[Rfam]
RNA sequence: GUGCAUAAGGCUUUUGGGUGGUGGCUCAUCCCUUUCAGAAAGGGGGUGAGGCCUAUAUGACAGUUUUCGAAGGGUUGGUCUUAAUGAUCUCUUUCGGGACGCUCAUUGUAGCUAUUCUGUCAGAAAAAAAGUAACCACCCUAGCCUGACAAGCAUUUAAUGGUUACUUUUCUCAAAAUGUGAGUCGCCCCCUUUAAGGGCUAUGCACGAAACCGUUUGGUGUUCCAGCACCAGGCG
Numbered sequence: 001g002u003g004c005a006u007a008a009g010g011c012u013u014u015u016g017g018g019u020g021g022u023g024g025c026u027c028a029u030c031c032c033u034u035u036c037a038g039a040a041a042g043g044g045g046g047u048g049a050g051g052c053c054u055a056u057a058u059g060a061c062a063g064u065u066u067u068c069g070a071a072g073g074g075u076u077g078g079u080c081u082u083a084a085u086g087a088u089c090u091c092u093u094u095c096g097g098g099a100c101g102c103u104c105a106u107u108g109u110a111g112c113u114a115u116u117c118u119g120u121c122a123g124a125a126a127a128a129a130a131g132u133a134a135c136c137a138c139c140c141u142a143g144c145c146u147g148a149c150a151a152g153c154a155u156u157u158a159a160u161g162g163u164u165a166c167u168u169u170u171c172u173c174a175a176a177a178u179g180u181g182a183g184u185c186g187c188c189c190c191c192u193u194u195a196a197g198g199g200c201u202a203u204g205c206a207c208g209a210a211a212c213c214g215u216u217u218g219g220u221g222u223u224c225c226a227g228c229a230c231c232a233g234g235c236g
Stems, first nucleotide, its partner, number of pairs: 001207005007201001009185005016140003020135001022133001026049003030045005059121005074085001096113002155176003186200004213236010
A member of the RNA family "BsrG" from Virgibacillus pantothenticus, 236 nucleotides long.
Lineage of the source: Bacteria > Bacillati > Bacillota > Bacilli > Virgibacillus.
Rfam 15.1 lists 614 matches to the family in 343 species.
A search with the family's covariance model found it, with a score of 65 bits.
By type it is a small RNA.
Pairs were carried over by alignment from the consensus structure, which was predicted with WAR.
From the family's description: bsrE, bsrG and bsrH pair through intermolecular interactions with antisense sRNAs.